[Rfam]
RNA sequence: CCAACGGCUCUUUUAAGAGCCACACAAAUUUUCUUAGAAGCGCUG
Numbered sequence: 001c002c003a004a005c006g007g008c009u010c011u012u013u014u015a016a017g018a019g020c021c022a023c024a025c026a027a028a029u030u031u032u033c034u035u036a037g038a039a040g041c042g043c044u045g
Stems, first nucleotide, its partner, number of pairs: 006021006